[Rfam]
RNA sequence: CUUCACCGAGCCCAGCAGCACCGGCCGGUCCUGCGGCCGGCCCUGACCGUACGUUGCCAGCAGCGCCUCCGCCUC
Numbered sequence: 001c002u003u004c005a006c007c008g009a010g011c012c013c014a015g016c017a018g019c020a021c022c023g024g025c026c027g028g029u030c031c032u033g034c035g036g037c038c039g040g041c042c043c044u045g046a047c048c049g050u051a052c053g054u055u056g057c058c059a060g061c062a063g064c065g066c067c068u069c070c071g072c073c074u075c
Stems, first nucleotide, its partner, number of pairs: 015025002031071001033069001038065002043060003047056001049054001

This 75-nucleotide RNA from Streptomyces sp. Rer75 belongs to the Rfam family "ASpks TB sRNA". A search with the family's covariance model found it, with a score of 75 bits. Rfam classes the family as an antisense RNA. Rfam 15.1 lists 9,052 matches to the family in 683 species.